[Rfam]
RNA sequence: CGGUUGUUAGUAAUUAACCAAGUUGUUAGUUAUUAAUUAAUUGGACUUCAUUAACGUAGCUGUUCGCCGUGCCCACACCGAACGGUUACGCUUUUUU
Numbered sequence: 001c002g003g004u005u006g007u008u009a010g011u012a013a014u015u016a017a018c019c020a021a022g023u024u025g026u027u028a029g030u031u032a033u034u035a036a037u038u039a040a041u042u043g044g045a046c047u048u049c050a051u052u053a054a055c056g057u058a059g060c061u062g063u064u065c066g067c068c069g070u071g072c073c074c075a076c077a078c079c080g081a082a083c084g085g086u087u088a089c090g091c092u093u094u095u096u097u
Stems, first nucleotide, its partner, number of pairs: 002042004006037013053092001055090012069078003
RNA: 23S methyl RNA motif